[Rfam]
The family of this 54-nucleotide RNA is "Xanthine riboswitch aptamer (NMT1 RNA)".
Pairs were carried over by alignment from the consensus structure, which is taken from published work.
The literature on the family includes a 2020 paper in RNA by Yu and Breaker, "A bacterial riboswitch class senses xanthine and uric acid to regulate genes associated with purine oxidation".

RNA sequence: UCCCUGAGUAGAAGCUGUCAGCCGGAGAGCCUCCGGUGGGUCAUUGCUCCCUUG
Dot-bracket structure: .....(((((....(...[.(((((((...))))))).)]....))))).....